Rfam assigns this 114-nucleotide sequence to the family "Potassium channel RNA editing signal".
It is one of the family's seed sequences.
On this family, see Bhalla et al., Nat Struct Mol Biol 2004: "Control of human potassium channel inactivation by editing of a small mRNA hairpin".
The family's consensus secondary structure is taken from published work.
Its family is annotated with adenosine to inosine editing in the Gene Ontology.
RNA sequence: CUGGGCUACGGGGACAUGUACCCCAAGACCUGGUCGGGGAUGCUGGUCGGGGCGCUGUGCGCCCUGGCCGGGGUGCUCACCAUCGCCAUGCCUGUGCCCGUGAUCGUCAACAAC
Numbered sequence: 001c002u003g004g005g006c007u008a009c010g011g012g013g014a015c016a017u018g019u020a021c022c023c024c025a026a027g028a029c030c031u032g033g034u035c036g037g038g039g040a041u042g043c044u045g046g047u048c049g050g051g052g053c054g055c056u057g058u059g060c061g062c063c064c065u066g067g068c069c070g071g072g073g074u075g076c077u078c079a080c081c082a083u084c085g086c087c088a089u090g091c092c093u094g095u096g097c098c099c100g101u102g103a104u105c106g107u108c109a110a111c112a113a114c
Base pairs, nucleotide, nucleotide: 002113004111008107009106010105011104014101015100018097019096020095021094037077038076040074049063050062
Dot-bracket structure: .(.(...((((..((..((((...............((.(........((...........))..........).))................))))..))..))))...).).